FMN riboswitch aptamer (RFN element): a 135-nucleotide RNA sequence from Ligilactobacillus ubinensis. The match comes from Rfam's covariance-model search (118 bits). The organism belongs to Ligilactobacillus, within Bacteria. The base pairs follow the family's consensus structure, which is taken from published work.
RNA sequence: AGAUUUCUUCGGGGCAGGGUGUAAUUCCCGACCGACGGUAAUAACUUCUUAGUUAAAGUCCGUGAGCUGCAUCAAGCAGUGGAUCCAGUGUAAGUCUGGAACCGACAGUUAUAGUCUGGAUGGGAGAAGAAACAA
Numbered sequence: 001a002g003a004u005u006u007c008u009u010c011g012g013g014g015c016a017g018g019g020u021g022u023a024a025u026u027c028c029c030g031a032c033c034g035a036c037g038g039u040a041a042u043a044a045c046u047u048c049u050u051a052g053u054u055a056a057a058g059u060c061c062g063u064g065a066g067c068u069g070c071a072u073c074a075a076g077c078a079g080u081g082g083a084u085c086c087a088g089u090g091u092a093a094g095u096c097u098g099g100a101a102c103c104g105a106c107a108g109u110u111a112u113a114g115u116c117u118g119g120a121u122g123g124g125a126g127a128a129g130a131a132a133c134a135a
Stems, first nucleotide, its partner, number of pairs: 004132007017029003031115002033104002035063004058102002066080003084100005106118003